[Rfam]
RNA: Small nucleolar RNA SNORD113/SNORD114 family
Organism: Saimiri boliviensis
RNA sequence: UGGAUCAAUGAUGAAAAUUGCCAGCGUGUGCGUGUUGGAUAAUGAAUUAUAUGUGUGUGGAAUUCUGACGUCCAA
Numbered sequence: 001u002g003g004a005u006c007a008a009u010g011a012u013g014a015a016a017a018u019u020g021c022c023a024g025c026g027u028g029u030g031c032g033u034g035u036u037g038g039a040u041a042a043u044g045a046a047u048u049a050u051a052u053g054u055g056u057g058u059g060g061a062a063u064u065c066u067g068a069c070g071u072c073c074a075a
Base pairs, nucleotide, nucleotide: 002073003072004071005070